[Rfam]
Description:
The record is a 114-nucleotide RNA sequence from Paenibacillus sp. KS1, which matches "TPP riboswitch aptamer (THI element)" in Rfam. Vitamin B(1) in its active form thiamin pyrophosphate (TPP) is an essential coenzyme that is synthesised by coupling of pyrimidine and thiazole moieties in bacteria.

RNA sequence: UCAUACAAAUUCGGGGGCUUGAGGAAUCAAGCUGAGAUUGUAGAUAAGUAUACCGCUACUGACCGUUAAUCUGAUCUGGGUAAUGCCAGCGUAGAGAAUCUGUAUUUGUCAUGU
Numbered sequence: 001u002c003a004u005a006c007a008a009a010u011u012c013g014g015g016g017g018c019u020u021g022a023g024g025a026a027u028c029a030a031g032c033u034g035a036g037a038u039u040g041u042a043g044a045u046a047a048g049u050a051u052a053c054c055g056c057u058a059c060u061g062a063c064c065g066u067u068a069a070u071c072u073g074a075u076c077u078g079g080g081u082a083a084u085g086c087c088a089g090c091g092u093a094g095a096g097a098a099u100c101u102g103u104a105u106u107u108g109u110c111a112u113g114u
Base pairs, nucleotide, nucleotide: 006102007101009099010098012065013064014063016060017032018031019030020029021028040059041058042057043056070095071094072093073092076089077088078087079086

Lineage of the source: Bacteria > Bacilli > Caryophanales > Paenibacillaceae > Paenibacillus.